[Rfam]
RNA sequence: AGAGAUCUUCGGGGCGGGGCGUAAUUCCCCACCGGCGGUAUUCAGGCUGUCAGGAACAAAAGACAGCAGGUAAGUCCGCGACCCGCGUAAAGCGGCUGAACCGGUGUGAUUCCGGUACCGACAGUUAUAGUCUGGAUGGGAGAGGAAACAA
Numbered sequence: 001a002g003a004g005a006u007c008u009u010c011g012g013g014g015c016g017g018g019g020c021g022u023a024a025u026u027c028c029c030c031a032c033c034g035g036c037g038g039u040a041u042u043c044a045g046g047c048u049g050u051c052a053g054g055a056a057c058a059a060a061a062g063a064c065a066g067c068a069g070g071u072a073a074g075u076c077c078g079c080g081a082c083c084c085g086c087g088u089a090a091a092g093c094g095g096c097u098g099a100a101c102c103g104g105u106g107u108g109a110u111u112c113c114g115g116u117a118c119c120g121a122c123a124g125u126u127a128u129a130g131u132c133u134g135g136a137u138g139g140g141a142g143a144g145g146a147a148a149c150a151a
Base pairs, nucleotide, nucleotide: 006146007145008144009143010142017029018028019027031131032130033120034119035079036078037077038076074118075117083095084094100116101115102114103113104112122134123133124132
Overview:
This 151-nucleotide sequence from Clostridiaceae bacterium AF18-31LB belongs to the Rfam family "FMN riboswitch aptamer (RFN element)". The source organism's lineage runs through Bacteria, Bacillati, Bacillota, Clostridia and Clostridiaceae. The match comes from Rfam's covariance-model search (100 bits).